[Rfam]
This 114-nucleotide RNA from Bugula neritina belongs to the Rfam family "Potassium channel RNA editing signal".
The literature on the family includes a 2004 paper in Nat Struct Mol Biol by Bhalla et al., "Control of human potassium channel inactivation by editing of a small mRNA hairpin".
NCBI's taxonomy places the organism under Eukaryota, Metazoa, Flustrina, Buguloidea, Bugula.
Rfam's curators write: This family represents a group of sequences related to the human potassium channel Kv1.1 hairpin element which directs the efficient modification of an adenosine to inosine by an adenosine deaminase acting on RNA (ADAR). The ADAR modification causes an isoleucine/valine recoding event which lies in the ion-conducting pore of the potassium channel.
The match comes from Rfam's covariance-model search (94 bits).
The family's RNA type in Rfam is cis-regulatory element.
RNA sequence: GUAGGGUACGGUGACAUGCGGCCCACGACUACAGCUGGCAAAUUGGUUGGUUCGCUAUGCGCCAUAACCGGAGUGCUUAUGAUCGCUCUGCCCGUACCUGUGAUAGUCUCUAAC
Dot-bracket structure: ((.((..((.(..(((.(..((..............((((........(((.........)))..........))))................)).).)))..).))..)).))
Numbered sequence: 001g002u003a004g005g006g007u008a009c010g011g012u013g014a015c016a017u018g019c020g021g022c023c024c025a026c027g028a029c030u031a032c033a034g035c036u037g038g039c040a041a042a043u044u045g046g047u048u049g050g051u052u053c054g055c056u057a058u059g060c061g062c063c064a065u066a067a068c069c070g071g072a073g074u075g076c077u078u079a080u081g082a083u084c085g086c087u088c089u090g091c092c093c094g095u096a097c098c099u100g101u102g103a104u105a106g107u108c109u110c111u112a113a114c
Stems, first nucleotide, its partner, number of pairs: 001114002004111002008107002011104001014101003018097001021095002037077004049063003